The record is a 74-nucleotide RNA from Prunella fulvescens, which matches "U1A polyadenylation inhibition element (PIE)" in Rfam. Gene Ontology term of the family: regulation of mRNA polyadenylation. The source organism's lineage runs through Eukaryota, Gnathostomata, Neognathae, Passeroidea and Prunella. By type it is a cis-regulatory element. This family represents the U1A polyadenylation inhibition element (PIE). PIE is a regulatory RNA which is responsible for the regulation of the length of the polyA tail of the U1A pre-mRNA. The PIE is located in the U1A mRNA 3' UTR. PIE adopts a U-shaped structure, with binding sites for a single U1A protein at each bend and when complexed with the two proteins it blocks activity of poly(A) polymerase (PAP), and inhibits its activity.
[Rfam]
RNA sequence: UUUCCCAGCAUUGUACCCAGGGUCUCUCUGCAGACAUUGCACCUGGAGCUGUCCCAAAUUAGCCCAAAUCCCCU
Number, nucleotide and partner (000 for none) at each position: 001u000002u000003u000004c000005c000006c051007a050008g049009c048010a000011u000012u000013g000014u000015a000016c000017c046018c045019a044020g043021g000022g035023u034024c033025u032026c000027u000028c000029u000030g000031c000032a025033g024034a023035c022036a000037u000038u000039g000040c000041a000042c000043c020044u019045g018046g017047a000048g009049c008050u007051g006052u000053c000054c000055c000056a000057a000058a000059u000060u000061a000062g000063c000064c000065c000066a000067a000068a000069u000070c000071c000072c000073c000074u000